[Rfam]
The record is an 86-nucleotide sequence from Ancylobacter pratisalsi, which matches "chrB-a RNA" in Rfam.
Lineage of the source: Bacteria > Pseudomonadati > Pseudomonadota > Xanthobacteraceae > Ancylobacter.
The family's RNA type in Rfam is cis-regulatory element.
The match comes from Rfam's covariance-model search (67 bits).
RNA sequence: CACAAGGGGUUAUUCGCGAUUGCCCCGUGAGGCGACAGCCCAAAGAUCGCGUCCAUGUUCCCUGACAAAUGGGAUGGACGCUCAUG
Numbered sequence: 001c002a003c004a005a006g007g008g009g010u011u012a013u014u015c016g017c018g019a020u021u022g023c024c025c026c027g028u029g030a031g032g033c034g035a036c037a038g039c040c041c042a043a044a045g046a047u048c049g050c051g052u053c054c055a056u057g058u059u060c061c062c063u064g065a066c067a068a069a070u071g072g073g074a075u076g077g078a079c080g081c082u083c084a085u086g
Base pairs, nucleotide, nucleotide: 006026007025008024009023010022049081050080051079052078053077054076055075056074